[Rfam]
RNA sequence: UUUAGAAAAUGGCAAACCUACCGAAAGUUAGGGACGCAAAGCCACAGGUCUAAAGGUCCGAGUGACUAUGACGGCUGGGUUACCGAG
Numbered sequence: 001u002u003u004a005g006a007a008a009a010u011g012g013c014a015a016a017c018c019u020a021c022c023g024a025a026a027g028u029u030a031g032g033g034a035c036g037c038a039a040a041g042c043c044a045c046a047g048g049u050c051u052a053a054a055g056g057u058c059c060g061a062g063u064g065a066c067u068a069u070g071a072c073g074g075c076u077g078g079g080u081u082a083c084c085g086a087g
Base pairs, nucleotide, nucleotide: 012037013036017032018031019030020029022027040081041080042079043078045077046076047075048072049071050070055066057064

A member of the RNA family "c-di-GMP-I riboswitch aptamer" from Anaerobacillus alkalidiazotrophicus, 87 nucleotides long. Taxonomically the source falls in Anaerobacillus (Bacteria, Bacillati, Bacillota, Bacillaceae). Rfam describes the family as follows. GEMM was predicted in a large-scale screen for bacterial structured RNA regulatory elements. Pairs were carried over by alignment from the consensus structure, which is taken from published work.